LOOT RNA: a 127-nucleotide sequence.
[Rfam]
RNA sequence: CACCUAACCCUUGUACUUUCUUAACAAAUACAAGGUAUGGUCAAAAACCGGUAAAGGAUAAAGAACCCAUCGUGGGACUACCUUUACCGGUCCUGUCAGGAAACUGGCAGUGGAUAGCUUAGCUAUC
Numbered sequence: 001c002a003c004c005u006a007a008c009c010c011u012u013g014u015a016c017u018u019u020c021u022u023a024a025c026a027a028a029u030a031c032a033a034g035g036u037a038u039g040g041u042c043a044a045a046a047a048c049c050g051g052u053a054a055a056g057g058a059u060a061a062a063g064a065a066c067c068c069a070u071c072g073u074g075g076g077a078c079u080a081c082c083u084u085u086a087c088c089g090g091u092c093c094u095g096u097c098a099g100g101a102a103a104c105u106g107g108c109a110g111u112g113g114a115u116a117g118c119u120u121a122g123c124u125a126u127c
Stems, first nucleotide, its partner, number of pairs: 002041003009035007048090010063079001066076003093110007113127005
The sequence is in the family's curated seed alignment.